[Rfam]
The family of this 171-nucleotide RNA from Sphingobacterium sp. JB170 is "Group II catalytic intron D1-D4-3".
RNA sequence: GCCAUUACAGGUGGAACCUCACGGAAGUGCUAGGGAAAUUCUUGGUCGAACGGACAGAAACGACAUAUAAGGCUUCAGUUGCUGGAUGAGGCUGCCAAACAAAUCGAAAUCCUAUACUGUACAAAAGGAUCAAGGUAAAUGUAGCAGACACAUGAGAUGAGAGUUCUCGUC
Numbered sequence: 001g002c003c004a005u006u007a008c009a010g011g012u013g014g015a016a017c018c019u020c021a022c023g024g025a026a027g028u029g030c031u032a033g034g035g036a037a038a039u040u041c042u043u044g045g046u047c048g049a050a051c052g053g054a055c056a057g058a059a060a061c062g063a064c065a066u067a068u069a070a071g072g073c074u075u076c077a078g079u080u081g082c083u084g085g086a087u088g089a090g091g092c093u094g095c096c097a098a099a100c101a102a103a104u105c106g107a108a109a110u111c112c113u114a115u116a117c118u119g120u121a122c123a124a125a126a127g128g129a130u131c132a133a134g135g136u137a138a139a140u141g142u143a144g145c146a147g148a149c150a151c152a153u154g155a156g157a158u159g160a161g162a163g164u165u166c167u168c169g170u171c
Base pairs, nucleotide, nucleotide: 002014003013004012005011006010027171034164040157041156042155043154044153045149046148047147061144063142064141065140066139072136073135074134078130079129080128082127084112085111086110087109090105091104093102
From the family's description: Group II introns are found in rRNA, tRNA and mRNA of organelles in fungi, plants and protists, and also in mRNA in bacteria.